[Rfam]
This 99-nucleotide RNA from Bifidobacterium simiarum belongs to the Rfam family "TPP riboswitch aptamer (THI element)". Rfam links the family to the GO term thiamine pyrophosphate binding. About the family: Vitamin B(1) in its active form thiamin pyrophosphate (TPP) is an essential coenzyme that is synthesised by coupling of pyrimidine and thiazole moieties in bacteria. The base pairs follow the family's consensus structure, which is taken from published work. The organism belongs to Bifidobacterium, within Bacteria.

RNA sequence: CGGAAACACUAGGGGUGCCUUGCGCUGAGAUGGCUGUACGCCAAUCCCUUCGAACCUGAUUUGGCUAGGACCAACGUAGGAAAGUGAUUUCGACGUCAG
Numbered sequence: 001c002g003g004a005a006a007c008a009c010u011a012g013g014g015g016u017g018c019c020u021u022g023c024g025c026u027g028a029g030a031u032g033g034c035u036g037u038a039c040g041c042c043a044a045u046c047c048c049u050u051c052g053a054a055c056c057u058g059a060u061u062u063g064g065c066u067a068g069g070a071c072c073a074a075c076g077u078a079g080g081a082a083a084g085u086g087a088u089u090u091c092g093a094c095g096u097c098a099g
Stems, first nucleotide, its partner, number of pairs: 007086004011049004016043001017025002032042003055080004061074004